[Rfam]
RNA sequence: UCCACCGUGAGGUGGAAUCUGAAGGAAGCCAGCGGCAAAUCUCCGGCCUGAGGAACACGAACCUCAAGCGAGGCUCUUGACAAGUGGAUGAGCUUGCCCCUCAAAGCGAAAUCCUGAUUCCCAAAGGUGUCAGGAGUACAUGAGGCAGGUAGAUGGAGAGACAGAAUAGGCU
Numbered sequence: 001u002c003c004a005c006c007g008u009g010a011g012g013u014g015g016a017a018u019c020u021g022a023a024g025g026a027a028g029c030c031a032g033c034g035g036c037a038a039a040u041c042u043c044c045g046g047c048c049u050g051a052g053g054a055a056c057a058c059g060a061a062c063c064u065c066a067a068g069c070g071a072g073g074c075u076c077u078u079g080a081c082a083a084g085u086g087g088a089u090g091a092g093c094u095u096g097c098c099c100c101u102c103a104a105a106g107c108g109a110a111a112u113c114c115u116g117a118u119u120c121c122c123a124a125a126g127g128u129g130u131c132a133g134g135a136g137u138a139c140a141u142g143a144g145g146c147a148g149g150u151a152g153a154u155g156g157a158g159a160g161a162c163a164g165a166a167u168a169g170g171c172u
Stems, first nucleotide, its partner, number of pairs: 001016006028172001030170001036164001040159006046150005062145005073137003077133006086114004092107004
Dot-bracket structure: ((((((....))))))...........(.(.....(...(((((((((((...........(((((......(((.((((((...((((..((((........))))...)))).............)))))).)))...))))))))))...))))))....).....).)
RNA: Group II catalytic intron D1-D4-3
Organism: Atribacter laminatus